A member of the RNA family "Eukaryotic small subunit ribosomal RNA" from Strigomonas oncopelti, 148 nucleotides of a longer RNA. Rfam's curators put it in the seed alignment. Taxonomically the source falls in Strigomonas (Eukaryota, Discoba, Euglenozoa, Trypanosomatida).
RNA sequence: CCGCCCGUCGUUGUUUCCGAUGAUGGUGGAAUACAGGUGAUCGGACGAAGCGGACCCUGUCUGCUCGAAAGUUCACCGAUAUUUCUUCAAUAGAGGAAGCAAAAGUCGUAACAAGGUAGCUGUAGGUGAACCUGCGGAAGGAUCAGGA
Number, nucleotide and partner (000 for none) at each position: 001c115002c000003g112004c000005c000006c108007g107008u000009c105010g000011u102012u101013g100014u099015u098016u097017c096018c095019g000020a000021u092022g091023a000024u089025g088026g087027u000028g085029g084030a083031a082032u081033a080034c000035a000036g077037g076038u075039g074040a073041u000042c071043g000044g000045a000046c067047g066048a065049a000050g064051c063052g062053g061054a060055c059056c000057c000058u000059g055060u054061c053062u052063g051064c050065u048066c047067g046068a000069a000070a000071g042072u000073u040074c039075a038076c037077c036078g000079a000080u033081a032082u031083u030084u029085c028086u000087u026088c025089a024090a000091u022092a021093g000094a000095g018096g017097a016098a015099g014100c013101a012102a011103a000104a000105g009106u000107c007108g006109u000110a000111a000112c003113a000114a000115g001116g000117u140118a000119g000120c137121u136122g135123u134124a133125g132126g131127u000128g000129a000130a000131c126132c125133u124134g123135c122136g121137g120138a000139a000140g117141g000142a000143u000144c000145a000146g000147g000148a000